[Rfam]
RNA sequence: UCCGGAUUAGCUCAGCGGUAGAGUAGGUGACUGUUAAUCACUUGGUCGCUGGUUCGAAUCCAGCAUCCGGAG
Numbered sequence: 001u002c003c004g005g006a007u008u009a010g011c012u013c014a015g016c017g018g019u020a021g022a023g024u025a026g027g028u029g030a031c032u033g034u035u036a037a038u039c040a041c042u043u044g045g046u047c048g049c050u051g052g053u054u055c056g057a058a059u060c061c062a063g064c065a066u067c068c069g070g071a072g
Stems, first nucleotide, its partner, number of pairs: 001071007010024004026042005048064005

Rfam assigns this 72-nucleotide sequence from Campylobacter pinnipediorum to the family "tRNA". A search with the family's covariance model found it, with a score of 69 bits. From the family's description: Transfer RNA (tRNA) molecules are approximately 80 nucleotides in length.